[Rfam]
RNA sequence: AUCAUCAAGAUGAUGAAAUCGAAAAAUCUUAGGACACCUUCUGACACAGUCUGACAAUGGCUGUGGAUGAGAAAGGGUAUUUUCGUUUCUGAUGUUGGA
Numbered sequence: 001a002u003c004a005u006c007a008a009g010a011u012g013a014u015g016a017a018a019u020c021g022a023a024a025a026a027u028c029u030u031a032g033g034a035c036a037c038c039u040u041c042u043g044a045c046a047c048a049g050u051c052u053g054a055c056a057a058u059g060g061c062u063g064u065g066g067a068u069g070a071g072a073a074a075g076g077g078u079a080u081u082u083u084c085g086u087u088u089c090u091g092a093u094g095u096u097g098g099a
Base pairs, nucleotide, nucleotide: 002098003097004096006094007093042048043047
Dot-bracket structure: .(((.((..................................((...))............................................)).))).